[Rfam]
RNA sequence: GAAUAAGGGCACAUGGUGGAUGCCUAGGGUCUGAAAGGCGAAGAAGGACGUGGUAAGCUGCGAUAAGCCAGGGGGAGUUGCACACGAGCAUUAUAUCCCUGGAUCUCCGAAUGGGACAACCCACUAUACUGAAGGUAUAGUACUCGAAAGAGAGCCAACCCCGAGAACUGAAACAUCUAAGUACCGGGAGGAAAAGAAAAUAACAAUGAUUCCCUGAGUAGUGGCGAGCGAAAAGGGAAGAGCCCAAACCUGUGGGGCGUGCUCCACGGGGGUUGUAGGACUACAUUUAGAAAGCUGUUUCAAUCUGAAUCUUCUGGAAAGGAGAGCCAAAGCGUGUGAAAGCCACGUAGGAGCAAAUAACAGUGGACGAGUAGUAUCCUGAGUAGCGCGGGACCGGAGGAAUCCUGCGUGAAUCUGCCGGCACCAUCCGGUAAGGCUAAAUACUCUUCAGACACCGAUAGUGAACCAGUACCGUAAGGGAAAGGUGAAAAGCACCCUGAAUAAGGGAGUGAAAUAGUACCUGAAACCGUGUGCCUACAAG
Dot-bracket structure: ......((((((((((.....(((..(((((((((((((......((((((........))).....(((((((..(((.......)))......)))))))...)))....(((....)))(((((((.....))))))).(((....))).))...(((((......((....)).......)))).).........((....))..((((((.....((.....))....)))))..((((....(((((((........)))))))......(((.((((.........((((((....(((...(((((......)))))..(...).(((.......)))...)))......))))))......))))...))).....((((((((.........))))))))......(((((......)))))..))))..)..)).))))))).))...............((....))....)).........((((.....)))).............).....)))))))))).....
RNA: Bacterial large subunit ribosomal RNA, nucleotides 9 to 549
Organism: Flavihumibacter petaseus